[Rfam]
RNA sequence: CGUACAAAACAACGAAAGCCCUACCUCUCAAUCGUCCUUACGGCUCCGAAGCCGUGCCAGUGUGAAUUGUGUUACAAAAAGUCUU
Numbered sequence: 001c002g003u004a005c006a007a008a009a010c011a012a013c014g015a016a017a018g019c020c021c022u023a024c025c026u027c028u029c030a031a032u033c034g035u036c037c038u039u040a041c042g043g044c045u046c047c048g049a050a051g052c053c054g055u056g057c058c059a060g061u062g063u064g065a066a067u068u069g070u071g072u073u074a075c076a077a078a079a080a081g082u083c084u085u
Stems, first nucleotide, its partner, number of pairs: 032065003037060002039056007

Rfam assigns this 85-nucleotide RNA sequence from Shouchella lonarensis to the family "BsrC". The 301 nucleotide sequence from Kouji Nakamura has been trimmed to a highly conserved ~85 nucleotide long core to form this family. NCBI's taxonomy places the organism under Bacteria, Bacillati, Bacillota, Bacillaceae, Shouchella.